[Rfam]
RNA sequence: GUAUGGUAAUGCAUUUAAGGGAAGGGCCUUCUUGGUGGGCCUCUUAUAAUGUACCCAUGCCAGAGUAAGCUGCAGCCUCAGGUCAUUGCCCUGCCUCUUUACUCAUGGGCUAUGAGCACUGAAGGGGGUUGCACAGUA
Numbered sequence: 001g002u003a004u005g006g007u008a009a010u011g012c013a014u015u016u017a018a019g020g021g022a023a024g025g026g027c028c029u030u031c032u033u034g035g036u037g038g039g040c041c042u043c044u045u046a047u048a049a050u051g052u053a054c055c056c057a058u059g060c061c062a063g064a065g066u067a068a069g070c071u072g073c074a075g076c077c078u079c080a081g082g083u084c085a086u087u088g089c090c091c092u093g094c095c096u097c098u099u100u101a102c103u104c105a106u107g108g109g110c111u112a113u114g115a116g117c118a119c120u121g122a123a124g125g126g127g128g129u130u131g132c133a134c135a136g137u138a
Stems, first nucleotide, its partner, number of pairs: 001060004005055004015049003019045002023042003027037001073131006084121002089116001093110004